[Rfam]
Source information
Na+ riboswitch aptamer (DUF1646): a 61-nucleotide RNA from Clostridium magnum.
RNA sequence: GGUUGGGUAAAUAGUUUUAUUGUUUACUUUCAAGCAAUUUUGGUUUCUGGGGUGGGAAGCU
Numbered sequence: 001g002g003u004u005g006g007g008u009a010a011a012u013a014g015u016u017u018u019a020u021u022g023u024u025u026a027c028u029u030u031c032a033a034g035c036a037a038u039u040u041u042g043g044u045u046u047c048u049g050g051g052g053u054g055g056g057a058a059g060c061u
Stems, first nucleotide, its partner, number of pairs: 003033003006028009042061007
Lineage of the source: Bacteria > Bacillota > Eubacteriales > Clostridium > Clostridium magnum. It scores 58 bits against the family's covariance model.